Notes
Shown here is a 136-nucleotide sequence from Podarcis lilfordi, a member of the family "Small nucleolar RNA SNORA29".
[Rfam]
RNA sequence: CUUCCCAUUCUACUGCCACUUAUUUGCAUUACCAAAUAAGAGGUUAUGCUUAUGGGAUAAAGAAAAGCCUGCCAUAGUCUAAAGGAGAAGAAUGAACACUGUCUUCCUCCUAUAUUAAAUGGCAGAACAUAGUACA
Numbered sequence: 001c002u003u004c005c006c007a008u009u010c011u012a013c014u015g016c017c018a019c020u021u022a023u024u025u026g027c028a029u030u031a032c033c034a035a036a037u038a039a040g041a042g043g044u045u046a047u048g049c050u051u052a053u054g055g056g057a058u059a060a061a062g063a064a065a066a067g068c069c070u071g072c073c074a075u076a077g078u079c080u081a082a083a084g085g086a087g088a089a090g091a092a093u094g095a096a097c098a099c100u101g102u103c104u105u106c107c108u109c110c111u112a113u114a115u116u117a118a119a120u121g122g123c124a125g126a127a128c129a130u131a132g133u134a135c136a
Base pairs, nucleotide, nucleotide: 004056005055006054007053016043017042019040071123072122073121074120088111090109091108
Overview:
Taxonomically the source falls in Podarcis (Eukaryota, Vertebrata, Tetrapoda, Amniota). From the family's description: ACA29 is a member of the H/ACA class of snoRNA that guide the sites of modification of uridines to pseudouridines.